[Rfam]
RNA sequence: AAAGGUCUUCCUAGGGCCAUACCAGAAGUGUUCACAAUGUAGCCCCUCUCAGAUCCUUAUGAAUCUGUGAAUUCUGCU
Number, nucleotide and partner (000 for none) at each position: 001a000002a000003a000004g000005g000006u000007c000008u000009u000010c000011c000012u000013a000014g045015g044016g043017c042018c000019a000020u000021a078022c000023c076024a075025g074026a073027a072028g040029u039030g038031u000032u000033c000034a000035c000036a000037a000038u030039g029040u028041a000042g017043c016044c015045c014046c000047u000048c000049u000050c067051a066052g065053a064054u063055c000056c061057u000058u000059a000060u000061g056062a000063a054064u053065c052066u051067g050068u000069g000070a000071a000072u027073u026074c025075u024076g023077c000078u021